[Rfam]
RNA sequence: UCGACGAGUCGCGACUGGCGUUGAGGUGGACCACCACCGGGGAGCGGCUGACUACGGCAUUCGACCGCGCGCCUGGGCCGAUGUU
Numbered sequence: 001u002c003g004a005c006g007a008g009u010c011g012c013g014a015c016u017g018g019c020g021u022u023g024a025g026g027u028g029g030a031c032c033a034c035c036a037c038c039g040g041g042g043a044g045c046g047g048c049u050g051a052c053u054a055c056g057g058c059a060u061u062c063g064a065c066c067g068c069g070c071g072c073c074u075g076g077g078c079c080g081a082u083g084u085u
Base pairs, nucleotide, nucleotide: 003052005050007049008048009047010046011045012044015041016040017073018072019071020070021069026037027036028035029034062080063079065077066076
A member of the RNA family "ZMP/ZTP riboswitch aptamer (pfl RNA motif)" from Microbacterium sp. RU33B, 85 nucleotides long. NCBI's taxonomy places the organism under Bacteria, Bacillati, Actinomycetota, Micrococcales, Microbacterium. On this family, see Jones and Ferre-D'Amare, Nat Struct Mol Biol 2015: "Recognition of the bacterial alarmone ZMP through long-distance association of two RNA subdomains". The base pairs follow the family's consensus structure, which is taken from published work. Gene Ontology terms of the family: one-carbon metabolic process and regulation of purine nucleotide biosynthetic process.